A member of the RNA family "Bradyrhizobiaceae sRNA BjrC174" from Aquabacter spiritensis, 210 nucleotides long. The match comes from Rfam's covariance-model search (60 bits). The base pairs follow the family's consensus structure. The source organism's lineage runs through Bacteria, Pseudomonadota, Alphaproteobacteria, Xanthobacteraceae and Aquabacter.
[Rfam]
RNA sequence: CUCACAGCCUCGUCAACGAAAAUCACACUAUGGUCGUUUUUCGGCCCCGUCCUCGCCCAUGGCGGGGGGCAUCUUCACUCCCGUAGCAGGGCCGGUUCGCGGUUGCUCCGGUCUAUCCCAGCCCCCCAGCCCCCCGGGGUGACGAGCGGACCGGCCACUGCUGCACAUAACCAAAACCAAACUUCUGAGGUCGCGCAAGCGGCCUUUUUU
Numbered sequence: 001c002u003c004a005c006a007g008c009c010u011c012g013u014c015a016a017c018g019a020a021a022a023u024c025a026c027a028c029u030a031u032g033g034u035c036g037u038u039u040u041u042c043g044g045c046c047c048c049g050u051c052c053u054c055g056c057c058c059a060u061g062g063c064g065g066g067g068g069g070c071a072u073c074u075u076c077a078c079u080c081c082c083g084u085a086g087c088a089g090g091g092c093c094g095g096u097u098c099g100c101g102g103u104u105g106c107u108c109c110g111g112u113c114u115a116u117c118c119c120a121g122c123c124c125c126c127c128a129g130c131c132c133c134c135c136g137g138g139g140u141g142a143c144g145a146g147c148g149g150a151c152c153g154g155c156c157a158c159u160g161c162u163g164c165a166c167a168u169a170a171c172c173a174a175a176a177c178c179a180a181a182c183u184u185c186u187g188a189g190g191u192c193g194c195g196c197a198a199g200c201g202g203c204c205u206u207u208u209u210u
Stems, first nucleotide, its partner, number of pairs: 036171002042049001083164007090156011103142009121130002187206008